RNA sequence: UCAGGGGGCGGGGCAGCCGCGUCAGGGUUCGUCCCUGCCGAGGAAAGUCCGGGCUCCACGAAACGAGGGUGGCGGGUAACGCCCGCCGGGGGGAAGGCUUUUGGCCGACCUUCAAGGGAAAGUGCCACAGAGAGCAAACCGCCGGACGGAUGCAAAUCCCAAGGUAAGGGUGAAAGGGUGCGGUAAGAGCGCACCGCAAUUCUGGCGACAGAAUUGGCAAGGCAAACCCCACCCGGAGCAAGACCGAAUAGGGGCAACGCGUCCAUCAGGACAGGCGGGUUUCGCGCCAGUUGCCCGGGUUGGUUGCUGGAGCGCACUGGCAACAGGGCGCCGAGAGGAAUGGCUGCCGCUGGCCGCCGCGUCGGAUGAUACGAGCGGCCUUCACAGAACCCGGCUUACAGGCCUCCUGACAUU
Numbered sequence: 001u002c003a004g005g006g007g008g009c010g011g012g013g014c015a016g017c018c019g020c021g022u023c024a025g026g027g028u029u030c031g032u033c034c035c036u037g038c039c040g041a042g043g044a045a046a047g048u049c050c051g052g053g054c055u056c057c058a059c060g061a062a063a064c065g066a067g068g069g070u071g072g073c074g075g076g077u078a079a080c081g082c083c084c085g086c087c088g089g090g091g092g093g094a095a096g097g098c099u100u101u102u103g104g105c106c107g108a109c110c111u112u113c114a115a116g117g118g119a120a121a122g123u124g125c126c127a128c129a130g131a132g133a134g135c136a137a138a139c140c141g142c143c144g145g146a147c148g149g150a151u152g153c154a155a156a157u158c159c160c161a162a163g164g165u166a167a168g169g170g171u172g173a174a175a176g177g178g179u180g181c182g183g184u185a186a187g188a189g190c191g192c193a194c195c196g197c198a199a200u201u202c203u204g205g206c207g208a209c210a211g212a213a214u215u216g217g218c219a220a221g222g223c224a225a226a227c228c229c230c231a232c233c234c235g236g237a238g239c240a241a242g243a244c245c246g247a248a249u250a251g252g253g254g255c256a257a258c259g260c261g262u263c264c265a266u267c268a269g270g271a272c273a274g275g276c277g278g279g280u281u282u283c284g285c286g287c288c289a290g291u292u293g294c295c296c297g298g299g300u301u302g303g304u305u306g307c308u309g310g311a312g313c314g315c316a317c318u319g320g321c322a323a324c325a326g327g328g329c330g331c332c333g334a335g336a337g338g339a340a341u342g343g344c345u346g347c348c349g350c351u352g353g354c355c356g357c358c359g360c361g362u363c364g365g366a367u368g369a370u371a372c373g374a375g376c377g378g379c380c381u382u383c384a385c386a387g388a389a390c391c392c393g394g395c396u397u398a399c400a401g402g403c404c405u406c407c408u409g410a411c412a413u414u
Stems, first nucleotide, its partner, number of pairs: 001410009011399001012348007020040002023037005045397003049394005054238004063282001065280001067234005072086005087116001089113005117229002122227002124223003139169002141165003148159004177195006196218001197216008242305004252296006274288004312331004317326003